[Rfam]
RNA sequence: CAACGAUAAUAGCAAACCUAGUGAAAACUAGCGACGCAAAACUAUAGGGUCUUCCUUAGAUAUUCUAAGAUGAUAGCCAGUUACCGAA
Numbered sequence: 001c002a003a004c005g006a007u008a009a010u011a012g013c014a015a016a017c018c019u020a021g022u023g024a025a026a027a028c029u030a031g032c033g034a035c036g037c038a039a040a041a042c043u044a045u046a047g048g049g050u051c052u053u054c055c056u057u058a059g060a061u062a063u064u065c066u067a068a069g070a071u072g073a074u075a076g077c078c079a080g081u082u083a084c085c086g087a088a
Stems, first nucleotide, its partner, number of pairs: 012037002018031005040082004047078002049074003056068004

Rfam assigns this 88-nucleotide RNA sequence from Lachnoclostridium phytofermentans to the family "c-di-GMP-I riboswitch aptamer". Lineage of the source: Bacteria > Bacillota > Clostridia > Lachnoclostridium > Lachnoclostridium phytofermentans. The family's consensus secondary structure is taken from published work. The match comes from Rfam's covariance-model search (70 bits). Rfam describes the family as follows. GEMM was predicted in a large-scale screen for bacterial structured RNA regulatory elements.